[Rfam]
Overview
Bacteroidete tryptophan peptide leader RNA: a 138-nucleotide RNA sequence from Xiashengella succiniciproducens. It scores 50 bits against the family's covariance model.

RNA sequence: CAAAUAUCAAAGCAGAUAUUAUGUCAAGAAUAGUUCGCAAUAAUUUUUGGUGGUGGCGCACUUCUUUUUCCGACAUCGGGAGAUGAAGCGGUGCACUUAUGUAUUAUAGCGAAGCUUAAAUAAAUACAAAGGCCUGUC
Number, nucleotide and partner (000 for none) at each position: 001c000002a000003a000004a000005u000006a000007u000008c000009a000010a000011a000012g000013c000014a000015g000016a000017u000018a000019u000020u000021a000022u000023g000024u000025c000026a000027a000028g000029a000030a000031u000032a000033g000034u000035u000036c111037g110038c109039a000040a107041u106042a105043a104044u103045u000046u000047u099048u000049g097050g096051u095052g094053g000054u000055g000056g000057c000058g000059c090060a000061c088062u087063u086064c085065u000066u083067u082068u081069u080070c079071c078072g077073a000074c000075a000076u000077c072078g071079g070080g069081a068082g067083a066084u000085g064086a063087a062088g061089c000090g059091g000092u000093g000094c052095a051096c050097u049098u000099a047100u000101g000102u000103a044104u043105u042106a041107u040108a000109g038110c037111g036112a000113a000114g000115c000116u000117u000118a000119a000120a000121u000122a000123a000124a000125u000126a000127c000128a000129a000130a000131g000132g000133c000134c000135u000136g000137u000138c000